[Rfam]
RNA sequence: UAACCUAUCUAGCGAUGGAUAGCUGAACAGUCAGAAGUCAGCAGAGGUCAUAGUACUCAAACAGCUUAAGAUGUUUUGGGGAAGGAC
Numbered sequence: 001u002a003a004c005c006u007a008u009c010u011a012g013c014g015a016u017g018g019a020u021a022g023c024u025g026a027a028c029a030g031u032c033a034g035a036a037g038u039c040a041g042c043a044g045a046g047g048u049c050a051u052a053g054u055a056c057u058c059a060a061a062c063a064g065c066u067u068a069a070g071a072u073g074u075u076u077u078g079g080g081g082a083a084g085g086a087c
Base pairs, nucleotide, nucleotide: 001025002024005022006021007020008019009018010017011016038045039044047087048086049085056080057079058078059077060076061075
RNA: Group II catalytic intron D1-D4-1
Organism: Schinkia azotoformans